[Rfam]
RNA sequence: GUGUCUAUAUGACAGACUGAUCCUAAACUCUAAUGAGGGGACAGCCUUGAUGAUUGACAC
Numbered sequence: 001g002u003g004u005c006u007a008u009a010u011g012a013c014a015g016a017c018u019g020a021u022c023c024u025a026a027a028c029u030c031u032a033a034u035g036a037g038g039g040g041a042c043a044g045c046c047u048u049g050a051u052g053a054u055u056g057a058c059a060c
Stems, first nucleotide, its partner, number of pairs: 001060005014047002017044003021040003028037003
RNA: Selenocysteine insertion sequence 1
Organism: Carassius auratus